[Rfam]
Nucleotides: 054
Stems, first nucleotide, its partner, number of pairs: 013043001014041003020036006
Number, partner (000 for none) and nucleotide at each position: 001000u002000u003000u004000g005000c006000a007000c008000u009000c010000u011000a012000u013043u014041g015040u016039a017000c018000g019000u020036c021035g022034c023033u024032c025031u026000g027000g028000a029000u030000u031025a032024g033023a034022g035021c036020g037000u038000c039016u040015g041014c042000u043013a044000a045000a046000u047000g048000a049000c050000u051000g052000u053000a054000a
Background:
Shown here is a 54-nucleotide sequence from Conger conger, a member of the family "UnaL2 LINE 3' element". About the family: The eel long interspersed element (LINE) UnaL2 and its partner short interspersed element (SINE) share a conserved 3' tail containing a stem-loop that is critical for their retrotransposition. Presumably, the first step of retrotransposition is the recognition of their 3' tails by UnaL2-encoded reverse transcriptase. The solution structure of a 17-nucleotide RNA derived from the 3' tail of UnaL2 was determined by NMR. NCBI's taxonomy places the organism under Eukaryota, Chordata, Gnathostomata, Congridae, Conger. The base pairs follow the family's consensus structure, which is taken from published work. A reference for the family is Baba et al. (2004), "Solution structure of an RNA stem-loop derived from the 3' conserved region of eel LINE UnaL2", RNA. Rfam classes the family as a cis-regulatory element. Its family is annotated with transposition, RNA-mediated in the Gene Ontology.